Annotation
This 73-nucleotide RNA from Camelus dromedarius belongs to the Rfam family "mir-541 microRNA precursor family". Lineage of the source: Eukaryota > Craniata > Euteleostomi > Artiodactyla > Camelus. A search with the family's covariance model found it, with a score of 44 bits. The family's consensus secondary structure was predicted with RNAalifold. For this family Rfam cites "Identification of clustered microRNAs using an ab initio prediction method" (Sewer et al., BMC Bioinformatics, 2005). Its family is annotated with type B pancreatic cell development, miRNA-mediated post-transcriptional gene silencing and RISC complex in the Gene Ontology.
RNA sequence: ACGUCAGGGAAAGGAUUCUGUUGUCGGUCCCGCGCCCAGGUUCACAAAAUGGUGGACGCAGAAUCUGCUUGUG
Numbered sequence: 001a002c003g004u005c006a007g008g009g010a011a012a013g014g015a016u017u018c019u020g021u022u023g024u025c026g027g028u029c030c031c032g033c034g035c036c037c038a039g040g041u042u043c044a045c046a047a048a049a050u051g052g053u054g055g056a057c058g059c060a061g062a063a064u065c066u067g068c069u070u071g072u073g
Stems, first nucleotide, its partner, number of pairs: 005073002008070002013066008022058004027053001030052002